[Rfam]
RNA sequence: CCCGGCCGACCGCCGAGUCCCGCGUCAGCGGGAGCCGGGGACCCAGGUUCCAUUGGGGUGAAUCCGCACGUCAGCGGUAGGGCUACUCCUGGCCCGAACCCGUCAGCUAACCCGGUAGGCGGCCAAGGAGGAGCAA
Numbered sequence: 001c002c003c004g005g006c007c008g009a010c011c012g013c014c015g016a017g018u019c020c021c022g023c024g025u026c027a028g029c030g031g032g033a034g035c036c037g038g039g040g041a042c043c044c045a046g047g048u049u050c051c052a053u054u055g056g057g058g059u060g061a062a063u064c065c066g067c068a069c070g071u072c073a074g075c076g077g078u079a080g081g082g083c084u085a086c087u088c089c090u091g092g093c094c095c096g097a098a099c100c101c102g103u104c105a106g107c108u109a110a111c112c113c114g115g116u117a118g119g120c121g122g123c124c125a126a127g128g129a130g131g132a133g134c135a136a
Stems, first nucleotide, its partner, number of pairs: 011121004018033005034116006044055002056101003064077004080095004
RNA: c-di-AMP riboswitch aptamer (ydaO/yuaA leader)
Organism: Bailinhaonella thermotolerans